[Rfam]
RNA sequence: UGGUGACCGGGUCUUCUGAGUCUGCAGUACUCAGGCUACGUGUGCCUCUGCAGCAGGUGCAGGCCCAGUCGUCAUCA
Numbered sequence: 001u002g003g004u005g006a007c008c009g010g011g012u013c014u015u016c017u018g019a020g021u022c023u024g025c026a027g028u029a030c031u032c033a034g035g036c037u038a039c040g041u042g043u044g045c046c047u048c049u050g051c052a053g054c055a056g057g058u059g060c061a062g063g064c065c066c067a068g069u070c071g072u073c074a075u076c077a
Stems, first nucleotide, its partner, number of pairs: 001077007009066005016034006043059005
Rfam assigns this 77-nucleotide sequence from Electrophorus electricus to the family "bZIP non canonical Hac1/Xbp1 intron". The family's consensus secondary structure was predicted with RNAfold. The family has 112 seed sequences and 1,325 matches in Rfam 15.1. NCBI's taxonomy places the organism under Eukaryota, Chordata, Ostariophysi, Gymnotidae, Electrophorus. Rfam describes the family as follows. bZIP intron RNA is a non-canonical intron that was first reported in HAC1 gene in yeast and XBP1 gene in Metazoa. A search with the family's covariance model found it, with a score of 59 bits.